The record is a 64-nucleotide part of an RNA from Arthrobacter sunyaminii, which matches "Bacterial large subunit ribosomal RNA" in Rfam. Lineage of the source: Bacteria > Actinomycetota > Actinomycetes > Micrococcales > Arthrobacter.
RNA sequence: CGUUGGAGCAGGGCGAUGCCACUUGUGGUGUUGUGCUUGUGACAGCGUGCCUUUUGAAGAAUGA
Number, nucleotide and partner (000 for none) at each position: 001c000002g046003u045004u044005g043006g000007a000008g040009c039010a038011g037012g036013g000014c000015g000016a000017u000018g000019c000020c000021a000022c000023u000024u000025g000026u000027g000028g000029u000030g000031u000032u000033g000034u000035g000036c012037u011038u010039g009040u008041g000042a000043c005044a004045g003046c002047g000048u000049g000050c063051c000052u061053u000054u000055u000056g000057a000058a000059g000060a000061a052062u000063g050064a000